Shown here is an 85-nucleotide sequence from Streptomyces sp. 351MFTsu5.1, a member of the family "nrdJ RNA". Lineage of the source: Bacteria > Bacillati > Actinomycetes > Streptomycetaceae > Streptomyces. It is annotated as a small RNA. The sequence is in the family's curated seed alignment.
[Rfam]
RNA sequence: ACCUGUUGCGGGCGGUAGCGAGUGGGUGCCCGCAGCAUCAGACAAAACACCGUGUCACGGGAACAUCGUGGCACUUCAGGGCGUU
Numbered sequence: 001a002c003c004u005g006u007u008g009c010g011g012g013c014g015g016u017a018g019c020g021a022g023u024g025g026g027u028g029c030c031c032g033c034a035g036c037a038u039c040a041g042a043c044a045a046a047a048c049a050c051c052g053u054g055u056c057a058c059g060g061g062a063a064c065a066u067c068g069u070g071g072c073a074c075u076u077c078a079g080g081g082c083g084u085u
Stems, first nucleotide, its partner, number of pairs: 004037011016024002052074008